[Rfam]
The record is a 109-nucleotide RNA sequence from Caldichromatium japonicum, which matches "TPP riboswitch aptamer (THI element)" in Rfam. NCBI's taxonomy places the organism under Bacteria, Pseudomonadota, Chromatiales, Chromatiaceae, Caldichromatium. The match comes from Rfam's covariance-model search (66 bits). Its family is annotated with thiamine pyrophosphate binding in the Gene Ontology.
RNA sequence: CAGAGCCGCUGGGGGUGUCCGCGCCUCCCCUGUCAGGGCGUGGGCUGAGAAUAGACCCCUUGAACCUGAUCCGGGUCAUGCCGGCGCAGGGAAGUCGGCGCCCUUGGCU
Dot-bracket structure: .....(.(((((((.(((((((((((.........)))))))))).......)..)))).....((((..((((......))))..))))..))).)............